[Rfam]
sul1 RNA: a 55-nucleotide RNA from Halovulum dunhuangense. It scores 66 bits against the family's covariance model.
RNA sequence: CCUGGACCCCGCGUUGUCGGGGUGGCUAUUCCGGCCGCCGAUCCGCCGGACAACC
Number, nucleotide and partner (000 for none) at each position: 001c000002c000003u000004g000005g000006a023007c022008c021009c020010c019011g018012c016013g000014u000015u000016g012017u000018c011019g010020g009021g008022g007023u006024g000025g000026c000027u000028a000029u000030u050031c049032c048033g047034g046035c045036c000037g000038c000039c000040g000041a000042u000043c000044c000045g035046c034047c033048g032049g031050a030051c000052a000053a000054c000055c000

Overview
Rfam classes the family as a riboswitch.